[Rfam]
RNA sequence: AUAAUGAUACUUCUGCCUGGCCAGCGUCACUGCAUUGGGGGCAGCCCGCUCGGAUGAGGGGGAGCUUUGUAAAUGAAGUUAUGU
Numbered sequence: 001a002u003a004a005u006g007a008u009a010c011u012u013c014u015g016c017c018u019g020g021c022c023a024g025c026g027u028c029a030c031u032g033c034a035u036u037g038g039g040g041g042c043a044g045c046c047c048g049c050u051c052g053g054a055u056g057a058g059g060g061g062g063a064g065c066u067u068u069g070u071a072a073a074u075g076a077a078g079u080u081a082u083g084u
Stems, first nucleotide, its partner, number of pairs: 012081001013044006045062003049058003063080007

Rfam assigns this 84-nucleotide sequence from Xylanibacillus composti to the family "pemK RNA". By type it is a cis-regulatory element.